[Rfam]
Nucleotides: 436
Base pairs, nucleotide, nucleotide: 017172018171019170020169021168022167023166024165025090026089027088028087029086030085032083033082034081035078036075037074038073039072041069043066045064046063047062048061050059051058052057098164099163100162101161102160105153106152107151109149110148111147112146113145185313186312190306191305192304193303195301205294206293207292208291211287212286213285214283215282319429320428321427322424323423324422325421326420335413336412337411338410339409342407343406344405389399390398391397392396
Number, partner (000 for none) and nucleotide at each position: 001000u002000u003000c004000a005000u006000c007000a008000c009000a010000a011000c012000a013000a014000a015000c016000c017172a018171g019170a020169u021168c022167u023166g024165u025090g026089u027088c028087c029086a030085g031000c032083a033082g034081u035078c036075c037074u038073g039072a040000u041069c042000c043066a044000a045064c046063c047062a048061g049000a050059g051058u052057a053000u054000u055000c056000g057052u058051a059050c060000c061048c062047u063046g064045g065000c066043u067000g068000u069041g070000u071000u072039u073038c074037g075036g076000u077000u078035g079000u080000u081034a082033u083032u084000g085030c086029u087028g088027g089026a090025c091000a092000g093000c094000u095000c096000g097000a098164c099163g100162a101161u102160u103000c104000a105153u106152g107151g108000a109149g110148c111147c112146a113145u114000c115000a116000a117000g118000g119000a120000a121000a122000a123000u124000a125000a126000g127000u128000u129000u130000c131000u132000u133000a134000u135000u136000u137000a138000u139000c140000c141000u142000c143000a144000a145113a146112u147111g148110g149109u150000g151107u152106c153105a154000a155000u156000u157000u158000c159000c160102g161101g162100u163099c164098g165024a166023c167022a168021g169020a170019u171018c172017u173000c174000a175000g176000a177000g178000a179000g180000a181000a182000u183000c184000u185313c186312a187000g188000c189000g190306g191305c192304c193303c194000g195301g196000u197000u198000c199000u200000c201000u202000u203000u204000u205294u206293a207292u208291u209000u210000u211287u212286u213285c214283c215282c216000u217000c218000u219000u220000g221000g222000g223000g224000g225000a226000u227000a228000a229000a230000a231000u232000u233000u234000a235000a236000a237000g238000a239000a240000u241000u242000a243000a244000a245000c246000a247000c248000u249000c250000u251000g252000c253000c254000u255000u256000g257000a258000g259000c260000u261000c262000c263000c264000u265000u266000u267000c268000c269000g270000c271000u272000u273000c274000g275000g276000c277000g278000g279000g280000u281000u282215g283214g284000u285213g286212a287211a288000u289000u290000c291208g292207g293206u294205g295000a296000g297000a298000u299000g300000g301195c302000a303193g304192g305191g306190u307000u308000u309000c310000u311000u312186u313185g314000c315000u316000g317000a318000g319429g320428g321427c322424g323423u324422c325421a326420u327000a328000u329000u330000c331000c332000a333000c334000c335413u336412c337411c338410c339409u340000u341000u342407a343406c344405c345000g346000a347000u348000u349000u350000u351000u352000g353000u354000c355000c356000c357000u358000u359000u360000u361000u362000u363000u364000c365000c366000c367000u368000u369000u370000u371000g372000c373000u374000u375000g376000g377000g378000g379000u380000a381000a382000g383000g384000g385000a386000u387000g388000c389399g390398g391397c392396c393000g394000u395000c396392g397391g398390c399389u400000g401000a402000u403000g404000a405344g406343g407342u408000u409339a410338g411337g412336g413335a414000a415000a416000a417000a418000c419000c420326a421325u422324g423323a424322c425000u426000u427321g428320c429319c430000a431000a432000c433000a434000u435000a436000u